A member of the RNA family "mir-395 microRNA precursor family", 103 nucleotides long.
mir-395 was identified in both Arabidopsis thaliana and Oryza sativa computationally and was later experimentally verified. mir-395 is thought to target mRNAs coding for ATP sulphurylases. The mature sequence is excised from the 3' arm of the hairpin.

[Rfam]
RNA sequence: GUUUCCCCUGGAGUUUCCUCAAUCGCUUCAUUGAGUCGGUUUUUUUAUUUUUUUAAAUAAUAAAAAUACUCACUGAAGUGUUUGGGGGAACUCCCGGAGAUUU
Numbered sequence: 001g002u003u004u005c006c007c008c009u010g011g012a013g014u015u016u017c018c019u020c021a022a023u024c025g026c027u028u029c030a031u032u033g034a035g036u037c038g039g040u041u042u043u044u045u046u047a048u049u050u051u052u053u054u055a056a057a058u059a060a061u062a063a064a065a066a067u068a069c070u071c072a073c074u075g076a077a078g079u080g081u082u083u084g085g086g087g088g089a090a091c092u093c094c095c096g097g098a099g100a101u102u103u
Base pairs, nucleotide, nucleotide: 005099007097008096011093012092013091014090015089016088017087018086019085020084021083022082024080025079026078027077028076029075030074032072033071034070035069